[Rfam]
RNA sequence: CUCGCUCUAACGGGGUGCCAUUCAACCAUUGAAUGGCUGAGAAGCCGUACUCCGGCUAACCCGCUGAACCUGAUCCGGCUUAUACCGGCGGAGGGAUUAGAUGCUGCCCGAUU
Numbered sequence: 001c002u003c004g005c006u007c008u009a010a011c012g013g014g015g016u017g018c019c020a021u022u023c024a025a026c027c028a029u030u031g032a033a034u035g036g037c038u039g040a041g042a043a044g045c046c047g048u049a050c051u052c053c054g055g056c057u058a059a060c061c062c063g064c065u066g067a068a069c070c071u072g073a074u075c076c077g078g079c080u081u082a083u084a085c086c087g088g089c090g091g092a093g094g095g096a097u098u099a100g101a102u103g104c105u106g107c108c109c110g111a112u113u
Base pairs, nucleotide, nucleotide: 006101007100008099009098010097011063012062013061014060017037018036019035020034021033022032023031024030044056045055046054047053069094070093071092075088076087077086078085
Shown here is a 113-nucleotide RNA sequence from Brucella rhizosphaerae, a member of the family "TPP riboswitch aptamer (THI element)".